[Rfam]
RNA sequence: GAUCCGAGAGUAUGGUAAGAAAUUUCUUACCAUACUCUCUAUUAGUGUUAUAGUAGUGCAACAAAUGCAAUA
Numbered sequence: 001g002a003u004c005c006g007a008g009a010g011u012a013u014g015g016u017a018a019g020a021a022a023u024u025u026c027u028u029a030c031c032a033u034a035c036u037c038u039c040u041a042u043u044a045g046u047g048u049u050a051u052a053g054u055a056g057u058g059c060a061a062c063a064a065a066u067g068c069a070a071u072a
Base pairs, nucleotide, nucleotide: 006039007038008037009036010035011034012033013032014031015030016029017028018027019026020025
Dot-bracket structure: .....(((((((((((((((....))))))))))))))).................................